[Rfam]
RNA sequence: AGAUAUCGCCGGGGUCACUCCUCCUCCCAGACCUCUGCGAUAAAAGACCGGCAUCUCCUCCUCCCAGCCGGUCUUUACAAAUAGCACCCGCCGCACCUCCUCCCGCGGCGGGUGUUGUUU
Numbered sequence: 001a002g003a004u005a006u007c008g009c010c011g012g013g014g015u016c017a018c019u020c021c022u023c024c025u026c027c028c029a030g031a032c033c034u035c036u037g038c039g040a041u042a043a044a045a046g047a048c049c050g051g052c053a054u055c056u057c058c059u060c061c062u063c064c065c066a067g068c069c070g071g072u073c074u075u076u077a078c079a080a081a082u083a084g085c086a087c088c089c090g091c092c093g094c095a096c097c098u099c100c101u102c103c104c105g106c107g108g109c110g111g112g113u114g115u116u117g118u119u120u
Stems, first nucleotide, its partner, number of pairs: 007039003011035006044075009084115011

About this RNA: The family of this 120-nucleotide sequence from Paramesorhizobium deserti is "Alphaproteobacterial ar14". Taxonomically the source falls in Paramesorhizobium (Bacteria, Pseudomonadati, Hyphomicrobiales, Phyllobacteriaceae). About the family: Smr14C2 was renamed NfeR1 (Nodule Formation Efficiency RNA) highly expressed in salt stress and during the symbiotic interaction on legume roots. A search with the family's covariance model found it, with a score of 107 bits. The base pairs follow the family's consensus structure. Gene Ontology term of the family: biological process involved in symbiotic interaction.